[Rfam]
RNA sequence: UUUCUGCUGCCUUGUAAGUCGCUUUGGAUAAAAGCGUCUGUUAAAUGCCUAAAU
Number, nucleotide and partner (000 for none) at each position: 001u000002u000003u000004c000005u000006g000007c000008u000009g000010c000011c000012u000013u043014g041015u040016a039017a000018g000019u000020c036021g035022c034023u033024u032025u031026g000027g000028a000029u000030a000031a025032a024033a023034g022035c021036g020037u000038c000039u016040g015041u014042u000043a013044a000045a000046u000047g000048c000049c000050u000051a000052a000053a000054u000
Rfam assigns this 54-nucleotide sequence from Channa argus to the family "UnaL2 LINE 3' element". A search with the family's covariance model found it, with a score of 58 bits. The family's consensus secondary structure is taken from published work. Rfam's curators write: The eel long interspersed element (LINE) UnaL2 and its partner short interspersed element (SINE) share a conserved 3' tail containing a stem-loop that is critical for their retrotransposition. Presumably, the first step of retrotransposition is the recognition of their 3' tails by UnaL2-encoded reverse transcriptase. The solution structure of a 17-nucleotide RNA derived from the 3' tail of UnaL2 was determined by NMR. Rfam classes the family as a cis-regulatory element.